[Rfam]
RNA sequence: AACGAUAACGGCAAACCUAUUGAAAGAUAGGGACGCAAAGCUAAAGGGCCUUCUCGAUCCAUGAAAGGCAGCCUGGCUACCGAAA
Numbered sequence: 001a002a003c004g005a006u007a008a009c010g011g012c013a014a015a016c017c018u019a020u021u022g023a024a025a026g027a028u029a030g031g032g033a034c035g036c037a038a039a040g041c042u043a044a045a046g047g048g049c050c051u052u053c054u055c056g057a058u059c060c061a062u063g064a065a066a067g068g069c070a071g072c073c074u075g076g077c078u079a080c081c082g083a084a085a
Stems, first nucleotide, its partner, number of pairs: 003082002011036002016031006034071001039078004045074003048069005

c-di-GMP-I-GGC riboswitch aptamer: an 85-nucleotide sequence from Aquibacillus salsiterrae.
The literature on the family includes a 2009 paper in Nat Struct Mol Biol by Smith et al., "Structural basis of ligand binding by a c-di-GMP riboswitch".
It scores 65 bits against the family's covariance model.
The organism belongs to Aquibacillus, within Bacteria.